Description: The family of this 66-nucleotide sequence from Pararge aegeria is "mir-2 microRNA precursor family". It scores 51 bits against the family's covariance model. The source organism's lineage runs through Eukaryota, Ecdysozoa, Amphiesmenoptera, Satyrinae and Pararge aegeria.
RNA sequence: UAGCCUGUCAAAGCGGCAUGUGACAUGUUUUCAGUUUUCAUAUCACAGCCACUUUGAUGUGGUCGG
Numbered sequence: 001u002a003g004c005c006u007g008u009c010a011a012a013g014c015g016g017c018a019u020g021u022g023a024c025a026u027g028u029u030u031u032c033a034g035u036u037u038u039c040a041u042a043u044c045a046c047a048g049c050c051a052c053u054u055u056g057a058u059g060u061g062g063u064c065g066g
Base pairs, nucleotide, nucleotide: 006059007058008057009056010055011054012053013052015050016049017048019047020046021045022044023043026042027041028040